[Rfam]
RNA sequence: GCGUUGGUUUAGCUCAGCGGUUACUUCUGAUUGUUACCAAAUCUUCGUCUUACGGCCGCCGGGGAUCGAACCUCGGGCACAGUUCAAAAUGUUC
Numbered sequence: 001g002c003g004u005u006g007g008u009u010u011a012g013c014u015c016a017g018c019g020g021u022u023a024c025u026u027c028u029g030a031u032u033g034u035u036a037c038c039a040a041a042u043c044u045u046c047g048u049c050u051u052a053c054g055g056c057c058g059c060c061g062g063g064g065a066u067c068g069a070a071c072c073u074c075g076g077g078c079a080c081a082g083u084u085c086a087a088a089a090u091g092u093u094c
Base pairs, nucleotide, nucleotide: 002091003090004089005086006085007084012078013077014076015075017074019072020071025070026069027068029066